[Rfam]
RNA: Streptococcus sRNA SpF59 (ldcC RNA)
RNA sequence: CGACCGCUCUUUGUAAAAAGAGCUAUGGCCAUACGGACAGCCUGGUCGAAAGCCGA
Numbered sequence: 001c002g003a004c005c006g007c008u009c010u011u012u013g014u015a016a017a018a019a020g021a022g023c024u025a026u027g028g029c030c031a032u033a034c035g036g037a038c039a040g041c042c043u044g045g046u047c048g049a050a051a052g053c054c055g056a
Base pairs, nucleotide, nucleotide: 001048002047003046004045005044006023007022008021009020010019011018